This 134-nucleotide sequence belongs to the Rfam family "TPP riboswitch aptamer (THI element)".

[Rfam]
RNA sequence: UAUCGCUUGACGGAGCGCGAGUAAUUCCUCGCUGAGAUUUAGUCAGUUUUGCAUCUCCUUGCCAAAACUUAAACUAAAGUACCGUUGAACCUGAUCAGGUUAAGACCUGCGUAGGAAUCAAGCAUCUAAAAACU
Numbered sequence: 001u002a003u004c005g006c007u008u009g010a011c012g013g014a015g016c017g018c019g020a021g022u023a024a025u026u027c028c029u030c031g032c033u034g035a036g037a038u039u040u041a042g043u044c045a046g047u048u049u050u051g052c053a054u055c056u057c058c059u060u061g062c063c064a065a066a067a068c069u070u071a072a073a074c075u076a077a078a079g080u081a082c083c084g085u086u087g088a089a090c091c092u093g094a095u096c097a098g099g100u101u102a103a104g105a106c107c108u109g110c111g112u113a114g115g116a117a118u119c120a121a122g123c124a125u126c127u128a129a130a131a132a133c134u
Stems, first nucleotide, its partner, number of pairs: 006122005011084003017032005039077005090115004096109004

Description
The base pairs follow the family's consensus structure, which is taken from published work. The match comes from Rfam's covariance-model search (63 bits).